[Rfam]
RNA sequence: GAUUACAGUCAGUUUUGCAAGUUUGCAUCCCAGCUUACUAAAAUUGCUGUGCAAAUCCAUGCAAAACUGACUGUGGUG
Numbered sequence: 001g002a003u004u005a006c007a008g009u010c011a012g013u014u015u016u017g018c019a020a021g022u023u024u025g026c027a028u029c030c031c032a033g034c035u036u037a038c039u040a041a042a043a044u045u046g047c048u049g050u051g052c053a054a055a056u057c058c059a060u061g062c063a064a065a066a067c068u069g070a071c072u073g074u075g076g077u078g
Stems, first nucleotide, its partner, number of pairs: 003076017021057001022055007032048003

The record is a 78-nucleotide RNA from Hylia prasina, which matches "mir-19 microRNA precursor family" in Rfam. The literature on the family includes a 2001 paper in Science by Lagos-Quintana et al., "Identification of novel genes coding for small expressed RNAs".